The family of this 73-nucleotide sequence from Neodrepanis coruscans is "tRNA". Rfam classes the family as a transfer RNA. It scores 49 bits against the family's covariance model. Pairs were carried over by alignment from the consensus structure, which is taken from published work.
[Rfam]
RNA sequence: GCUCCAGUGGCCUAAUGGGUAAGACACUGGCCUUCUAAGUCAGGGAUUGUCGGUUCGAGUCCCACCUGGGGUG
Numbered sequence: 001g002c003u004c005c006a007g008u009g010g011c012c013u014a015a016u017g018g019g020u021a022a023g024a025c026a027c028u029g030g031c032c033u034u035c036u037a038a039g040u041c042a043g044g045g046a047u048u049g050u051c052g053g054u055u056c057g058a059g060u061c062c063c064a065c066c067u068g069g070g071g072u073g
Stems, first nucleotide, its partner, number of pairs: 001072007010025001012023002027043005049065002052062002